[Rfam]
RNA sequence: UUUUGAGGUUGCUCUCCUCUCCUCCUCCCUGGAGAUCGGCCUCAGGUUUGCGCCACACCUCCUCCCGUGGCGCGGGCAGAAGAGAUCAGACGCCAUCCCACCUCCCGGGAUGGCGUCUUUCU
Numbered sequence: 001u002u003u004u005g006a007g008g009u010u011g012c013u014c015u016c017c018u019c020u021c022c023u024c025c026u027c028c029c030u031g032g033a034g035a036u037c038g039g040c041c042u043c044a045g046g047u048u049u050g051c052g053c054c055a056c057a058c059c060u061c062c063u064c065c066c067g068u069g070g071c072g073c074g075g076g077c078a079g080a081a082g083a084g085a086u087c088a089g090a091c092g093c094c095a096u097c098c099c100a101c102c103u104c105c106c107g108g109g110a111u112g113g114c115g116u117c118u119u120u121c122u
Base pairs, nucleotide, nucleotide: 007041008040009039011037013035014034015033016032017031046077047076048075049074050073051072052071053070054069055068089117090116091115092114093113094112095111096110097109098108099107
The record is a 122-nucleotide RNA sequence from Oceanicola sp. 22II-s10i, which matches "Alphaproteobacterial ar14" in Rfam. The base pairs follow the family's consensus structure. Rfam links the family to the GO term biological process involved in symbiotic interaction. Rfam classes the family as a small RNA. NCBI's taxonomy places the organism under Bacteria, Pseudomonadati, Alphaproteobacteria, Roseobacteraceae, Oceanicola. It scores 69 bits against the family's covariance model.